[Rfam]
RNA sequence: UGACAGGACUCUGGAGAGAAGUCUUCCAAAAGAAGGCUCGCCGAAGGGAUAACAAUCUCAGGCGCCAAAGACAGAGGGGGCUCA
Dot-bracket structure: ........(((((......((((((.......)))))).(((((..((.......)))).)))........)))))........
A member of the RNA family "Glycine riboswitch aptamer" from Rhizobium deserti, 84 nucleotides long. The source organism's lineage runs through Bacteria, Pseudomonadati, Hyphomicrobiales, Rhizobiaceae and Rhizobium.